[Rfam]
RNA sequence: CCGCCAUCGCGUAACUGACGAGACAGGCGGAGCACCGCCGUGGAGCGCGAUCUUGGCUUGCCGCUCGUCUGGGCACUCUCU
Numbered sequence: 001c002c003g004c005c006a007u008c009g010c011g012u013a014a015c016u017g018a019c020g021a022g023a024c025a026g027g028c029g030g031a032g033c034a035c036c037g038c039c040g041u042g043g044a045g046c047g048c049g050a051u052c053u054u055g056g057c058u059u060g061c062c063g064c065u066c067g068u069c070u071g072g073g074c075a076c077u078c079u080c081u
Stems, first nucleotide, its partner, number of pairs: 003054001006051007015042001017069005027038004059075004
About this RNA
The family of this 81-nucleotide RNA from Novosphingobium sp. is "ZMP/ZTP riboswitch aptamer (pfl RNA motif)". The match comes from Rfam's covariance-model search (58 bits). The family's consensus secondary structure is taken from published work. On this family, see Jones and Ferre-D'Amare, Nat Struct Mol Biol 2015: "Recognition of the bacterial alarmone ZMP through long-distance association of two RNA subdomains".